[Rfam]
RNA sequence: ACCUAUGAUGAGCUGCCCAACAUGUGAGGUGUAGGUAACUCCAAGCCCUGUUUCAGGGAGAACCUACUUGGGGUUCUACAUCCAAAUGAGAUACAUGGGCAUUUACUGAGGU
Numbered sequence: 001a002c003c004u005a006u007g008a009u010g011a012g013c014u015g016c017c018c019a020a021c022a023u024g025u026g027a028g029g030u031g032u033a034g035g036u037a038a039c040u041c042c043a044a045g046c047c048c049u050g051u052u053u054c055a056g057g058g059a060g061a062a063c064c065u066a067c068u069u070g071g072g073g074u075u076c077u078a079c080a081u082c083c084a085a086a087u088g089a090g091a092u093a094c095a096u097g098g099g100c101a102u103u104u105a106c107u108g109a110g111g112u
Base pairs, nucleotide, nucleotide: 001112002111003110046058047057048056049055050054
This 112-nucleotide RNA sequence from Miscanthus lutarioriparius belongs to the Rfam family "Small nucleolar RNA Z278". Lineage of the source: Eukaryota > Streptophytina > Poales > Panicoideae > Miscanthus. Rfam links the family to the GO terms RNA processing and nucleolus. A search with the family's covariance model found it, with a score of 66 bits. About the family: snoZ278 is a C/D box small nucleolar RNA. Its methylation guide targets have not been reported. For this family Rfam cites "The high diversity of snoRNAs in plants: identification and comparative study of 120 snoRNA genes from Oryza sativa" (Chen et al., Nucleic Acids Res, 2003). It is annotated as a C/D-box small nucleolar RNA.